[Rfam]
RNA sequence: UUAUACCCAAACAACUUGAAGUUGCAGGUAGGCGGCAAAUGAGUGAAUCCCCAUGAGCAUAGAUACGCUAUGUGAUUGGGGUGAACGAAUGCAGCCAACACCGCUGCAGCUUCAAGUAGGAAGGG
Numbered sequence: 001u002u003a004u005a006c007c008c009a010a011a012c013a014a015c016u017u018g019a020a021g022u023u024g025c026a027g028g029u030a031g032g033c034g035g036c037a038a039a040u041g042a043g044u045g046a047a048u049c050c051c052c053a054u055g056a057g058c059a060u061a062g063a064u065a066c067g068c069u070a071u072g073u074g075a076u077u078g079g080g081g082u083g084a085a086c087g088a089a090u091g092c093a094g095c096c097a098a099c100a101c102c103g104c105u106g107c108a109g110c111u112u113c114a115a116g117u118a119g120g121a122a123g124g125g
Base pairs, nucleotide, nucleotide: 002124004122006120007119014117015116016115017114018113019112020111021110022109023108024107025106026105027102028101029100032092033091034090036083037082040079042077043076044075

The record is a 125-nucleotide sequence from Vibrio vulnificus, which matches "Vibrio RNA AS5" in Rfam. The source organism's lineage runs through Bacteria, Gammaproteobacteria, Vibrionales, Vibrio and Vibrio vulnificus. Identified by direct cloning an parallel sequencing experiments with 5S/tRNA depletion. Confirmed by Northern blot. The family's RNA type in Rfam is antisense RNA. The base pairs follow the family's consensus structure, which was predicted with RNAfold. On this family, see Liu et al., Nucleic Acids Res 2009: "Experimental discovery of sRNAs in Vibrio cholerae by direct cloning, 5S/tRNA depletion and parallel sequencing".